[Rfam]
Nucleotides: 264
Base pairs, nucleotide, nucleotide: 001159002158003157004156005155006154007153008152011145012144013143014142017045018044019043020042021041022040023039047102048101049100050099051098055096056095057094062089063088064087065086066085067082068081069080070079071078072077106140107139108138113133114132115131116130117129162176163175164174178261181259182258183257184256185201186200187199188198189197206252207251208250209248210247211246212245213244216240219236222235223234224233225232226231
Number, partner (000 for none) and nucleotide at each position: 001159g002158g003157a004156a005155g006154u007153u008152u009000g010000a011145g012144g013143g014142g015000g016000c017045c018044u019043g020042c021041u022040c023039c024000u025000a026000g027000u028000a029000c030000g031000a032000g033000a034000g035000g036000a037000c038000c039023g040022g041021a042020g043019u044018g045017g046000a047102c048101g049100a050099a051098c052000c053000u054000c055096u056095g057094g058000u059000g060000u061000a062089c063088c064087g065086g066085u067082u068081g069080u070079c071078a072077c073000g074000c075000c076000a077072g078071u079070g080069g081068c082067a083000u084000c085066g086065c087064c088063g089062g090000g091000u092000a093000g094057c095056u096055a097000u098051g099050u100049u101048c102047g103000g104000a105000a106140g107139a108138g109000a110000u111000a112000a113133c114132c115131g116130c117129u118000g119000a120000a121000a122000g123000c124000a125000u126000c127000u128000a129117a130116g131115c132114g133113g134000g135000a136000a137000a138108c139107u140106c141000g142014c143013c144012u145011c146000a147000a148000g149000a150000u151000g152008a153007g154006a155005c156004u157003u158002c159001c160000c161000g162176g163175g164174g165000a166000c167000u168000a169000g170000a171000u172000c173000c174164c175163c176162u177000u178261g179000a180000a181259g182258g183257g184256u185201c186200g187199u188198u189197c190000g191000a192000g193000a194000c195000c196000a197189g198188g199187a200186c201185g202000u203000u204000g205000a206252u207251a208250g209248g210247u211246c212245a213244g214000g215000u216240g217000u218000g219236g220000a221000a222235g223234c224233g225232c226231a227000g228000u229000a230000a231226u232225g233224c234223g235222u236219u237000a238000a239000g240216c241000u242000a243000a244213c245212u246211g247210a248209u249000a250208c251207u252206a253000a254000u255000u256184g257183c258182c259181c260000g261178u262000a263000a264000g
Shown here is a 264-nucleotide part of an RNA from Paraburkholderia acidisoli, a member of the family "Bacterial large subunit ribosomal RNA". Lineage of the source: Bacteria > Pseudomonadati > Pseudomonadota > Burkholderiaceae > Paraburkholderia.